[Rfam]
RNA sequence: GUGCAUGUGAUGAGUUUCUCGGAUUCCCCUUCAAGACAGCAUGGAUGAUGCACACCCGAGUUUCUGAUGCA
Numbered sequence: 001g002u003g004c005a006u007g008u009g010a011u012g013a014g015u016u017u018c019u020c021g022g023a024u025u026c027c028c029c030u031u032c033a034a035g036a037c038a039g040c041a042u043g044g045a046u047g048a049u050g051c052a053c054a055c056c057c058g059a060g061u062u063u064c065u066g067a068u069g070c071a
Stems, first nucleotide, its partner, number of pairs: 002071004

A member of the RNA family "Small nucleolar RNA snoR60" from Vigna angularis, 71 nucleotides long. The base pairs follow the family's consensus structure, which was predicted with PFOLD. Rfam 15.1 lists 1,133 matches to the family in 227 species. A search with the family's covariance model found it, with a score of 80 bits. A reference for the family is Barneche et al. (2000), "Fibrillarin genes encode both a conserved nucleolar protein and a novel small nucleolar RNA involved in ribosomal RNA methylation in Arabidopsis thaliana", J Biol Chem.